[Rfam]
RNA sequence: UACAGAGUAGGUAUUUGUGCGUCAAGUGUUAAGAGGACGGGAAGUUGUCUCUUAAACGAAAAACUCUAGCAGUUUGCGGUACAAAUAUUGCAUUCCGCUGUA
Numbered sequence: 001u002a003c004a005g006a007g008u009a010g011g012u013a014u015u016u017g018u019g020c021g022u023c024a025a026g027u028g029u030u031a032a033g034a035g036g037a038c039g040g041g042a043a044g045u046u047g048u049c050u051c052u053u054a055a056a057c058g059a060a061a062a063a064c065u066c067u068a069g070c071a072g073u074u075u076g077c078g079g080u081a082c083a084a085a086u087a088u089u090g091c092a093u094u095c096c097g098c099u100g101u102a
Stems, first nucleotide, its partner, number of pairs: 001102005010089010020078003026057002029055008040095003044091001061075004
THF (Tetrahydrofolate) riboswitch aptamer: a 102-nucleotide RNA from Clostridium neonatale. For this family Rfam cites "A eubacterial riboswitch class that senses the coenzyme tetrahydrofolate" (Ames et al., Chem Biol, 2010). Tetrahydrofolate (THF) riboswitch was first reported for Ames et al. as an RNA motif in 5' untranslated (5'-UTR)regions of folate transport and biosynthesis genes in Firmicutes genomes. The base pairs follow the family's consensus structure, which is taken from published work. Rfam links the family to the GO term tetrahydrofolate metabolic process.